The family of this 82-nucleotide RNA from Bombyx mori is "mir-2807 microRNA precursor family". The family's consensus secondary structure was predicted with RNAalifold. Rfam 15.1 lists 5,120 matches to the family in 8 species. A search with the family's covariance model found it, with a score of 57 bits.
RNA sequence: UUAACUCAAAUUUGUAUGCAGUUGGAACAGCGCCCGUAGCCAUAAACGUAGGCAAAUGCUCCAACUCCAUACAAAUUAUGUA
Numbered sequence: 001u002u003a004a005c006u007c008a009a010a011u012u013u014g015u016a017u018g019c020a021g022u023u024g025g026a027a028c029a030g031c032g033c034c035c036g037u038a039g040c041c042a043u044a045a046a047c048g049u050a051g052g053c054a055a056a057u058g059c060u061c062c063a064a065c066u067c068c069a070u071a072c073a074a075a076u077u078a079u080g081u082a
Base pairs, nucleotide, nucleotide: 009077010076011075012074013073014072015071016070018068020066021065022064023063024062025061026060028058029057034052035051039047